This 42-nucleotide sequence from Beauveria bassiana belongs to the Rfam family "Guanidine-II riboswitch aptamer (mini-ykkC)". NCBI's taxonomy places the organism under Eukaryota, Opisthokonta, Fungi, Dikarya, Beauveria bassiana. Its family is annotated with regulation of gene expression in the Gene Ontology. Pairs were carried over by alignment from the consensus structure, which is taken from published work.
RNA sequence: UGGCCGGGACGGCCCGGCCAGGCAAUGGAAAAGGACGGCCUU
Numbered sequence: 001u002g003g004c005c006g007g008g009a010c011g012g013c014c015c016g017g018c019c020a021g022g023c024a025a026u027g028g029a030a031a032a033g034g035a036c037g038g039c040c041u042u
Base pairs, nucleotide, nucleotide: 001020002019003018004017005016006015007014008013031042032041033040034039